[Rfam]
RNA sequence: GUCUCUAAUGAUGAUUUUAUGAUUAAAACUUUCGUUCUUCCGAGAAAUUACCUAUGAGGAAUUCUUAUGGAGACCUGAACUGAAGAGAC
Numbered sequence: 001g002u003c004u005c006u007a008a009u010g011a012u013g014a015u016u017u018u019a020u021g022a023u024u025a026a027a028a029c030u031u032u033c034g035u036u037c038u039u040c041c042g043a044g045a046a047a048u049u050a051c052c053u054a055u056g057a058g059g060a061a062u063u064c065u066u067a068u069g070g071a072g073a074c075c076u077g078a079a080c081u082g083a084a085g086a087g088a089c
Stems, first nucleotide, its partner, number of pairs: 003087004

Rfam assigns this 89-nucleotide RNA from Jatropha curcas to the family "Small nucleolar RNA Z159/U59". The match comes from Rfam's covariance-model search (57 bits). On this family, see Chen et al., Nucleic Acids Res 2003: "The high diversity of snoRNAs in plants: identification and comparative study of 120 snoRNA genes from Oryza sativa". The family's RNA type in Rfam is C/D-box small nucleolar RNA. Gene Ontology terms of the family: nucleolus and RNA processing.